[Rfam]
RNA sequence: AGACUAAAACGUCCGUAGUCGCAACUAGCACCACCCCGGUGCCAGGUAUAUCUCGUAAUGAGAUUGCCUGGCUCGGGGCGGCACGGCCCUGGUGACGUUAGCGCGUCACUUGCGGCCCGCAUCCUUGACCUAAACCAAACGAUCAAAGUGAGCUCGUGCUCGAUGGUUUUGCAUGGAAUCGUGGAACGGGGCCGGCGUUCUGUACUUCGAGAGCGCUGGCGACGAUCAACGGGAGCGAUCAGGGGUGAGGGAACUGAAGGGCGAGGGGUAAAAUCUGAUGAGCCUUUCAAGACCACCGAAAGCGAAAGCAUUCACCAGGAGCGUUUCCGUCGAUAAAGGACUGAAGCCACCGUAGUGAACUGGAUUAGAUACCCAGGUAUCGGUGUGCCCCAAACUAUGCCAACCGGCCGGAUGCUCGAUUUACUUUCGUGGCGAGUAUUCGGUCCGAGGAAGCUGGAGCGAUUUGGCUUCUGGGAGAUUACGGCUGCAAAGUUGAAACUUAAAGGAAU
Numbered sequence: 001a002g003a004c005u006a007a008a009a010c011g012u013c014c015g016u017a018g019u020c021g022c023a024a025c026u027a028g029c030a031c032c033a034c035c036c037c038g039g040u041g042c043c044a045g046g047u048a049u050a051u052c053u054c055g056u057a058a059u060g061a062g063a064u065u066g067c068c069u070g071g072c073u074c075g076g077g078g079c080g081g082c083a084c085g086g087c088c089c090u091g092g093u094g095a096c097g098u099u100a101g102c103g104c105g106u107c108a109c110u111u112g113c114g115g116c117c118c119g120c121a122u123c124c125u126u127g128a129c130c131u132a133a134a135c136c137a138a139a140c141g142a143u144c145a146a147a148g149u150g151a152g153c154u155c156g157u158g159c160u161c162g163a164u165g166g167u168u169u170u171g172c173a174u175g176g177a178a179u180c181g182u183g184g185a186a187c188g189g190g191g192c193c194g195g196c197g198u199u200c201u202g203u204a205c206u207u208c209g210a211g212a213g214c215g216c217u218g219g220c221g222a223c224g225a226u227c228a229a230c231g232g233g234a235g236c237g238a239u240c241a242g243g244g245g246u247g248a249g250g251g252a253a254c255u256g257a258a259g260g261g262c263g264a265g266g267g268g269u270a271a272a273a274u275c276u277g278a279u280g281a282g283c284c285u286u287u288c289a290a291g292a293c294c295a296c297c298g299a300a301a302g303c304g305a306a307a308g309c310a311u312u313c314a315c316c317a318g319g320a321g322c323g324u325u326u327c328c329g330u331c332g333a334u335a336a337a338g339g340a341c342u343g344a345a346g347c348c349a350c351c352g353u354a355g356u357g358a359a360c361u362g363g364a365u366u367a368g369a370u371a372c373c374c375a376g377g378u379a380u381c382g383g384u385g386u387g388c389c390c391c392a393a394a395c396u397a398u399g400c401c402a403a404c405c406g407g408c409c410g411g412a413u414g415c416u417c418g419a420u421u422u423a424c425u426u427u428c429g430u431g432g433c434g435a436g437u438a439u440u441c442g443g444u445c446c447g448a449g450g451a452a453g454c455u456g457g458a459g460c461g462a463u464u465u466g467g468c469u470u471c472u473g474g475g476a477g478a479u480u481a482c483g484g485c486u487g488c489a490a491a492g493u494u495g496a497a498a499c500u501u502a503a504a505g506g507a508a509u
Base pairs, nucleotide, nucleotide: 001472002471003470009469011341012340013339014338018334019333020332232328233327234326235325236323237322239320240319244316245315246314247313248312249311250294251293255289256288257287258286259285260284261283265276266275267274302309303308346388347387348385349384350383351382355381360376361375362374363373399468400467401466404459406445407444408443411440412439413438414437415436416435417434418433420432421431448455449454474501475500483494484493485492486491
The family of this 509-nucleotide part of an RNA from Marteilia refringens is "Eukaryotic small subunit ribosomal RNA". Taxonomically the source falls in Marteilia (Eukaryota, Sar, Endomyxa, Paramyxea). Rfam's curators put it in the seed alignment. Gene Ontology terms of the family: structural constituent of ribosome and ribosome.